[Rfam]
RNA sequence: ACCUAGGGUAGAGGUGCUGUUAAUCAAGAGUAUUUGAUGGGAGUUGGCAGGCAUUGAUCAUCAGAGAAAGGGGUUGCGGCCGAAGGAGUAAACUCGGCGGGGCUUACUUCUGGUUGUGCACAAAAUAUGUGUAUGAUUGUCACUUAAGAAUGAAGUGGAGAGCUACAAGGUAC
Numbered sequence: 001a002c003c004u005a006g007g008g009u010a011g012a013g014g015u016g017c018u019g020u021u022a023a024u025c026a027a028g029a030g031u032a033u034u035u036g037a038u039g040g041g042a043g044u045u046g047g048c049a050g051g052c053a054u055u056g057a058u059c060a061u062c063a064g065a066g067a068a069a070g071g072g073g074u075u076g077c078g079g080c081c082g083a084a085g086g087a088g089u090a091a092a093c094u095c096g097g098c099g100g101g102g103c104u105u106a107c108u109u110c111u112g113g114u115u116g117u118g119c120a121c122a123a124a125a126u127a128u129g130u131g132u133a134u135g136a137u138u139g140u141c142a143c144u145u146a147a148g149a150a151u152g153a154a155g156u157g158g159a160g161a162g163c164u165a166c167a168a169g170g171u172a173c
Stems, first nucleotide, its partner, number of pairs: 008166004016080005023074003033065008084111008093102003112138011140158006
The family of this 173-nucleotide sequence from Clostridium polyendosporum is "Lysine riboswitch aptamer". The base pairs follow the family's consensus structure, which is taken from published work. The match comes from Rfam's covariance-model search (97 bits). The source organism's lineage runs through Bacteria, Bacillati, Bacillota, Eubacteriales and Clostridium.